This 92-nucleotide RNA sequence from Saccharomyces kudriavzevii belongs to the Rfam family "Small nucleolar RNA snR53". The family's RNA type in Rfam is C/D-box small nucleolar RNA. Gene Ontology terms of the family: nucleolus and RNA processing. The literature on the family includes a 1999 paper in Science by Lowe and Eddy, "A computational screen for methylation guide snoRNAs in yeast". The base pairs follow the family's consensus structure, which was predicted with PFOLD. The organism belongs to Saccharomyces kudriavzevii, within Eukaryota.

[Rfam]
RNA sequence: UUUAAUGAUGAUUACACUCCAUGCUAAUCAUGAAUGUGUUCAAUGUAAAUUUUGGAUGCGAUGAUUAAAAUUGUUGUUUACGUUUUCUGAAA
Numbered sequence: 001u002u003u004a005a006u007g008a009u010g011a012u013u014a015c016a017c018u019c020c021a022u023g024c025u026a027a028u029c030a031u032g033a034a035u036g037u038g039u040u041c042a043a044u045g046u047a048a049a050u051u052u053u054g055g056a057u058g059c060g061a062u063g064a065u066u067a068a069a070a071u072u073g074u075u076g077u078u079u080a081c082g083u084u085u086u087c088u089g090a091a092a
Stems, first nucleotide, its partner, number of pairs: 001092002035060009